[Rfam]
The family of this 95-nucleotide RNA sequence from Arachis hypogaea is "Small nucleolar RNA snoR31/Z110/Z27".
From the family's description: This family contains several related snoRNAs including R31, Z27 and Z110.
Gene Ontology terms of the family: nucleolus and RNA processing.
Taxonomically the source falls in Arachis (Eukaryota, Euphyllophyta, Magnoliopsida, dalbergioids sensu lato).
The match comes from Rfam's covariance-model search (51 bits).

RNA sequence: CACAUCAGGUGAUGAAAGUGGAAAUAAUCUUAGGACACCUUCCUACACAGCAAAUUGCUGUGGAUGAGAAAGAAAUUUCCAUCACUGAUGAUGUG
Numbered sequence: 001c002a003c004a005u006c007a008g009g010u011g012a013u014g015a016a017a018g019u020g021g022a023a024a025u026a027a028u029c030u031u032a033g034g035a036c037a038c039c040u041u042c043c044u045a046c047a048c049a050g051c052a053a054a055u056u057g058c059u060g061u062g063g064a065u066g067a068g069a070a071a072g073a074a075a076u077u078u079c080c081a082u083c084a085c086u087g088a089u090g091a092u093g094u095g
Base pairs, nucleotide, nucleotide: 001095002094003093004092005091006090007089